[Rfam]
RNA sequence: AUGAAAAGUUAAGGGUUCAUUCAGCUGUCCAGAUGUAUCCAAGUACCUUGUGUAAUUUGGCAAUAAAUACAUCUGGGCAACUGACUGAACUUUUCGCUUUUCAC
Dot-bracket structure: ..(((((((.(((((((((.((((.(((((((((((((((((((..........))))))......))))))))))))).)))).))))))))).)))))))..
The record is a 104-nucleotide RNA sequence from Callithrix jacchus, which matches "mir-1298 microRNA precursor family" in Rfam. Gene Ontology terms of the family: miRNA-mediated post-transcriptional gene silencing and RISC complex. It scores 110 bits against the family's covariance model. The organism belongs to Callithrix, within Eukaryota.